[Rfam]
This 154-nucleotide RNA sequence from Amborella trichopoda belongs to the Rfam family "MIR8565 microRNA precursor family". The base pairs follow the family's consensus structure, which was predicted with RNAalifold. Taxonomically the source falls in Amborella (Eukaryota, Streptophyta, Euphyllophyta, Amborellaceae).
Nucleotides: 154
Stems, first nucleotide, its partner, number of pairs: 002153012015140007023132006030125003034121001036119007044111007052103005058097008067088002069082005
Number, partner (000 for none) and nucleotide at each position: 001000c002153c003152c004151c005150c006149a007148c008147c009146c010145a011144u012143g013142u014000g015140u016139g017138u018137a019136g020135g021134a022000c023132c024131u025130c026129a027128a028127a029000g030125g031124a032123u033000c034121a035000c036119c037118a038117u039116u040115a041114a042113a043000g044111u045110u046109g047108g048107c049106a050105c051000a052103g053102a054101u055100c056099u057000c058097u059096a060095g061094a062093a063092a064091a065090g066000u067088u068087a069082u070081u071080a072079c073078a074000u075000g076000g077000g078073u079072g080071u081070a082069g083000g084000a085000c086000u087068u088067g089000c090065c091064u092063u093062u094061u095060c096059u097058a098000u099056a100055g101054a102053u103052c104000c105050g106049u107048g108047u109046u110045a111044a112000a113042u114041u115040u116039a117038a118037u119036g120000a121034u122000a123032a124031u125030c126000c127028u128027u129026u130025g131024g132023g133000a134021u135020c136019c137018u138017a139016c140015a141000c142013a143012c144011a145010u146009g147008g148007g149006u150005g151004g152003g153002g154000g